[Rfam]
Nucleotides: 200
Base pairs, nucleotide, nucleotide: 001063002062006059007058008057009055010054011053012052015050017049019042022038027035071147072146073145074144075143076142077141081127082126083125084124094115095114096113155165156164157163174194175193176192177191178190179189180188181187182186
Number, partner (000 for none) and nucleotide at each position: 001063g002062u003000a004000g005000a006059u007058g008057c009055u010054c011053a012052u013000u014000c015050c016000a017049c018000c019042u020000c021000u022038u023000a024000u025000g026000u027035u028000u029000g030000c031000u032000g033000a034000u035027g036000c037000u038022a039000c040000a041000u042019a043000a044000a045000c046000c047000u048000g049017g050015g051000a052012a053011u054010g055009a056000u057008g058007c059006a060000g061000a062002g063001c064000c065000c066000c067000u068000u069000a070000c071147g072146g073145u074144a075143u076142c077141c078000g079000u080000u081127g082126u083125c084124c085000a086000g087000c088000c089000u090000g091000g092000c093000a094115g095114u096113a097000u098000u099000u100000g101000c102000g103000c104000a105000c106000g107000c108000u109000u110000u111000a112000c113096u114095g115094c116000a117000g118000u119000a120000a121000g122000a123000a124084g125083g126082a127081c128000a129000u130000u131000a132000c133000g134000u135000u136000g137000a138000g139000u140000c141077g142076g143075a144074u145073a146072c147071c148000a149000u150000c151000a152000g153000u154000u155165g156164u157163c158000u159000g160000a161000a162000c163157g164156a165155c166000c167000u168000g169000a170000c171000u172000u173000u174194a175193c176192a177191c178190c179189u180188g181187c182186u183000u184000u185000u186182g187181g188180c189179a190178g191177g192176u193175g194174u195000u196000u197000u198000u199000u200000u

This 200-nucleotide RNA sequence from Pantoea vagans belongs to the Rfam family "GlmZ RNA activator of glmS mRNA". A reference for the family is Argaman et al. (2001), "Novel small RNA-encoding genes in the intergenic regions of Escherichia coli", Curr Biol. Rfam describes the family as follows. This RNA was discovered in E. coli during a large scale screen. The sraJ gene was expressed in early logarithmic phase, but its level decreased with cell growth. Specific cleavage products of this RNA were found. Identified in Yersinia pseudotuberculosis as Ysr248/153/sR016. Pairs were carried over by alignment from the consensus structure, which is taken from published work.